The family of this 177-nucleotide sequence from Thermosipho atlanticus is "Lysine riboswitch aptamer". Pairs were carried over by alignment from the consensus structure, which is taken from published work. A search with the family's covariance model found it, with a score of 116 bits. Taxonomically the source falls in Thermosipho atlanticus (Bacteria, Thermotogae, Thermotogales, Fervidobacteriaceae). Rfam links the family to the GO term lysine biosynthetic process.
[Rfam]
RNA sequence: UUAGCGAUCGGAGGCGCGUCCGAGAUGAGUAGGAUUUCCCAUCAAUGGGAGAUAUUGGGGAAAUCCGAAAGGCGAGGACGCCGAAGGGUGUGAGGUUUCUCCCACCUCACAUACCUGGGGGUACAGGGAAUACCUGUACCACUGUCACGGCUAACUCCGUGGAGAGCCGAUCGCUGC
Number, nucleotide and partner (000 for none) at each position: 001u000002u000003a000004g000005c000006g172007a171008u170009c169010g168011g167012a000013g000014g000015c000016g081017c080018g079019u078020c077021c076022g000023a000024g073025a000026u000027g000028a000029g000030u000031a000032g066033g065034a064035u063036u062037u061038c060039c059040c000041a000042u000043c000044a000045a000046u000047g000048g000049g000050a000051g000052a000053u000054a000055u000056u000057g000058g000059g039060g038061a037062a036063a035064u034065c033066c032067g000068a000069a000070a000071g000072g000073c024074g000075a000076g021077g020078a019079c018080g017081c016082c000083g000084a000085a116086g115087g114088g112089u111090g110091u109092g108093a107094g106095g105096u104097u000098u000099c000100u000101c000102c000103c000104a096105c095106c094107u093108c092109a091110c090111a089112u088113a000114c087115c086116u085117g143118g142119g000120g140121g139122u138123a137124c136125a135126g134127g133128g000129a000130a000131u000132a000133c127134c126135u125136g124137u123138a122139c121140c120141a000142c118143u117144g000145u162146c161147a160148c159149g158150g157151c000152u000153a000154a000155c000156u000157c150158c149159g148160u147161g146162g145163a000164g000165a000166g000167c011168c010169g009170a008171u007172c006173g000174c000175u000176g000177c000